The record is an 82-nucleotide RNA from Erinaceus europaeus, which matches "Small nucleolar RNA SNORD60" in Rfam. The family has 22 seed sequences and 825 matches in Rfam 15.1. NCBI's taxonomy places the organism under Eukaryota, Tetrapoda, Eutheria, Eulipotyphla, Erinaceus. It scores 62 bits against the family's covariance model. Gene Ontology terms of the family: nucleolus and RNA processing. Pairs were carried over by alignment from the consensus structure, which was predicted with PFOLD. It is annotated as a C/D-box small nucleolar RNA. On this family, see Galardi et al., Mol Cell Biol 2002: "Purified box C/D snoRNPs are able to reproduce site-specific 2'-O-methylation of target RNA in vitro".
[Rfam]
RNA sequence: AGCCUGUCACGAGUCUCUUUCAUUUCUGACACUUUGUAUGAGAACUGCAUGUGCAGUCUGAUUUGCAAACUUCCCUAGUCUA
Numbered sequence: 001a002g003c004c005u006g007u008c009a010c011g012a013g014u015c016u017c018u019u020u021c022a023u024u025u026c027u028g029a030c031a032c033u034u035u036g037u038a039u040g041a042g043a044a045c046u047g048c049a050u051g052u053g054c055a056g057u058c059u060g061a062u063u064u065g066c067a068a069a070c071u072u073c074c075c076u077a078g079u080c081u082a
Base pairs, nucleotide, nucleotide: 001081002080004078044057045056046055047054048053